[Rfam]
RNA sequence: GGAGACGUGGCCGAGCGGCUGAAGGCACUCGUUUGCUAAAUGAGCAUACCUUGAAAAGGGUAUCGAGGGUUCGAAUCCCUCCGUCUCCG
Numbered sequence: 001g002g003a004g005a006c007g008u009g010g011c012c013g014a015g016c017g018g019c020u021g022a023a024g025g026c027a028c029u030c031g032u033u034u035g036c037u038a039a040a041u042g043a044g045c046a047u048a049c050c051u052u053g054a055a056a057a058g059g060g061u062a063u064c065g066a067g068g069g070u071u072c073g074a075a076u077c078c079c080u081c082c083g084u085c086u087c088c089g
Base pairs, nucleotide, nucleotide: 001088002087003086004085005084006083007082010026011025012024028044029043030042031041032040065081066080067079068078069077
RNA: tRNA